[Rfam]
RNA sequence: GGCUGAACCCGCCGGGGGGAGGCUUCAAACCACCACAUGCUGCGUUGGCUGAAGACCGUCGUGGUGAGCGAUGUGGAAAAGGCGCACGAGAUGCGUCAGGU
Numbered sequence: 001g002g003c004u005g006a007a008c009c010c011g012c013c014g015g016g017g018g019g020a021g022g023c024u025u026c027a028a029a030c031c032a033c034c035a036c037a038u039g040c041u042g043c044g045u046u047g048g049c050u051g052a053a054g055a056c057c058g059u060c061g062u063g064g065u066g067a068g069c070g071a072u073g074u075g076g077a078a079a080a081g082g083c084g085c086a087c088g089a090g091a092u093g094c095g096u097c098a099g100g101u
Stems, first nucleotide, its partner, number of pairs: 001024004008019003031100001033076006039065002042062003046058003081097006